RNA sequence: AGAGAUCACAAGCUUGAGGCCAGAGCAGAAGUGCUCAUGGUGUGGCCUGCCAGAUUCCAACAAAAUCUGUGAAUUCUUCU
Numbered sequence: 001a002g003a004g005a006u007c008a009c010a011a012g013c014u015u016g017a018g019g020c021c022a023g024a025g026c027a028g029a030a031g032u033g034c035u036c037a038u039g040g041u042g043u044g045g046c047c048u049g050c051c052a053g054a055u056u057c058c059a060a061c062a063a064a065a066u067c068u069g070u071g072a073a074u075u076c077u078u079c080u
Base pairs, nucleotide, nucleotide: 018047019046020045021044024080025079027077028076029075030074031043032042033041051069052068053067054066055065056064
RNA: Mammalian CPEB3 ribozyme
Organism: Alligator sinensis